[Rfam]
RNA sequence: CGGGGGGCGGGGAUGUCCCUCAGCCCAGAUUGCAAGAGGGAGCAGGCCAGGCUGAGGGACUCCAUCAGUGCAUG
Numbered sequence: 001c002g003g004g005g006g007g008c009g010g011g012g013a014u015g016u017c018c019c020u021c022a023g024c025c026c027a028g029a030u031u032g033c034a035a036g037a038g039g040g041a042g043c044a045g046g047c048c049a050g051g052c053u054g055a056g057g058g059a060c061u062c063c064a065u066c067a068g069u070g071c072a073u074g
Stems, first nucleotide, its partner, number of pairs: 002071001004069001007066001010063003015060011028047001030045004
Dot-bracket structure: .(.(..(..(((..(((((((((((..(.((((........)))).)..))))))))))))))..)..).)...
Background:
Rfam assigns this 74-nucleotide RNA sequence from Myotis davidii to the family "mir-9193 microRNA precursor family". The family has 2 seed sequences and 6,008 matches in Rfam 15.1. Its family is annotated with RISC complex and miRNA-mediated post-transcriptional gene silencing in the Gene Ontology. A search with the family's covariance model found it, with a score of 70 bits.